[Rfam]
This 578-nucleotide part of an RNA from Methanohalophilus mahii belongs to the Rfam family "Archaeal small subunit ribosomal RNA". The family is grouped with related families in Rfam's "SSU clan". The base pairs follow the family's consensus structure, which is taken from published work. Gene Ontology terms of the family: ribosome and structural constituent of ribosome.
RNA sequence: UGGCGGGGGAGCACUACAACGGGUGGAGCCUGCGGUUUAAUUGGACUCAACGCCGGACAACUCACCGGGGGCGACAGCAAUAUGUAGGUCAAGCUAAAGACUUUACCUGAAUCGCUGAGAGGAGGUGCAUGGCCGUCGUCAGUUCGUACUGUGAAGCAUCCUGUUAAGUCAGGCAACGAGCGAGACCCGUGCCCACUGUUGCCAGCAUAUCCUUCGGGAUGAUGGGUACUCUGUGGGGACCGCCGAUGCUAAAUCGGAGGAAGGUGCGGGCUACGGUAGGUCAGUAUGCCCCGAAUCUCCCGGGCUACACGCGGGCUACAAUGGUUGGGACAAUGGGCUCCUACACUGAAAAGUGACGGUAAUCUCAUAAACCCAGCCGUAGUUCGAAUUGAGGGCUGAAACCCGCCCUCAUGAAGCUGGAAUCCGUAGUAAUCGCGUUUCAAUAUAGCGCGGUGAAUACGUCCCUGCUCCUUGCACACACCGCCCGUCAAACCACCCGAGUGAGGUAUGGGUGAGGGCGCGGACUUAGUGCUGCGUUCGAACCUAAAUUUCGCAAGGGGGGUUAAGUCGUAACAAGG
Numbered sequence: 001u002g003g004c005g006g007g008g009g010a011g012c013a014c015u016a017c018a019a020c021g022g023g024u025g026g027a028g029c030c031u032g033c034g035g036u037u038u039a040a041u042u043g044g045a046c047u048c049a050a051c052g053c054c055g056g057a058c059a060a061c062u063c064a065c066c067g068g069g070g071g072c073g074a075c076a077g078c079a080a081u082a083u084g085u086a087g088g089u090c091a092a093g094c095u096a097a098a099g100a101c102u103u104u105a106c107c108u109g110a111a112u113c114g115c116u117g118a119g120a121g122g123a124g125g126u127g128c129a130u131g132g133c134c135g136u137c138g139u140c141a142g143u144u145c146g147u148a149c150u151g152u153g154a155a156g157c158a159u160c161c162u163g164u165u166a167a168g169u170c171a172g173g174c175a176a177c178g179a180g181c182g183a184g185a186c187c188c189g190u191g192c193c194c195a196c197u198g199u200u201g202c203c204a205g206c207a208u209a210u211c212c213u214u215c216g217g218g219a220u221g222a223u224g225g226g227u228a229c230u231c232u233g234u235g236g237g238g239a240c241c242g243c244c245g246a247u248g249c250u251a252a253a254u255c256g257g258a259g260g261a262a263g264g265u266g267c268g269g270g271c272u273a274c275g276g277u278a279g280g281u282c283a284g285u286a287u288g289c290c291c292c293g294a295a296u297c298u299c300c301c302g303g304g305c306u307a308c309a310c311g312c313g314g315g316c317u318a319c320a321a322u323g324g325u326u327g328g329g330a331c332a333a334u335g336g337g338c339u340c341c342u343a344c345a346c347u348g349a350a351a352a353g354u355g356a357c358g359g360u361a362a363u364c365u366c367a368u369a370a371a372c373c374c375a376g377c378c379g380u381a382g383u384u385c386g387a388a389u390u391g392a393g394g395g396c397u398g399a400a401a402c403c404c405g406c407c408c409u410c411a412u413g414a415a416g417c418u419g420g421a422a423u424c425c426g427u428a429g430u431a432a433u434c435g436c437g438u439u440u441c442a443a444u445a446u447a448g449c450g451c452g453g454u455g456a457a458u459a460c461g462u463c464c465c466u467g468c469u470c471c472u473u474g475c476a477c478a479c480a481c482c483g484c485c486c487g488u489c490a491a492a493c494c495a496c497c498c499g500a501g502u503g504a505g506g507u508a509u510g511g512g513u514g515a516g517g518g519c520g521c522g523g524a525c526u527u528a529g530u531g532c533u534g535c536g537u538u539c540g541a542a543c544c545u546a547a548a549u550u551u552c553g554c555a556a557g558g559g560g561g562g563u564u565a566a567g568u569c570g571u572a573a574c575a576a577g578g
Stems, first nucleotide, its partner, number of pairs: 001478002003475003007472007016462002020426005025319001027317008035308002041056004065303007075117004079112001087107003091103003121292002124290004130286002132281003135277004142181006149156002160173004187269004192237005198231001202226002206224003209220004240260002243257005323378007335366003340359002344355004385416001390411007432454008481577001483574001486570002489567001491564004496559003501554007509546005516539008